[Rfam]
RNA sequence: AAACCGUAUAUAAGAGUUGGAGGAAACUAAACAAAAUUAUACCUUUGGUUAAGAGUAGUUUGUUUAGUUUCCUCCAAUAUCUUAUUUCCGGCAU
Number, nucleotide and partner (000 for none) at each position: 001a000002a000003a000004c091005c090006g089007u000008a087009u000010a000011u084012a083013a082014g081015a000016g078017u077018u076019g075020g074021a073022g000023g071024a070025a069026a068027c067028u066029a065030a064031a000032c062033a061034a060035a059036a000037u000038u000039a000040u000041a000042c000043c000044u000045u000046u000047g000048g000049u000050u000051a000052a000053g000054a000055g000056u000057a000058g000059u035060u034061u033062g032063u000064u030065u029066a028067g027068u026069u025070u024071c023072c000073u021074c020075c019076a018077a017078u016079a000080u000081c014082u013083u012084a011085u000086u000087u008088c000089c006090g005091g004092c000093a000094u000
The family of this 94-nucleotide RNA sequence from Rosa chinensis is "MIR2275 microRNA precursor family". The source organism's lineage runs through Eukaryota, Pentapetalae, Rosaceae, Rosoideae and Rosa. Its family is annotated with miRNA-mediated post-transcriptional gene silencing and RISC complex in the Gene Ontology.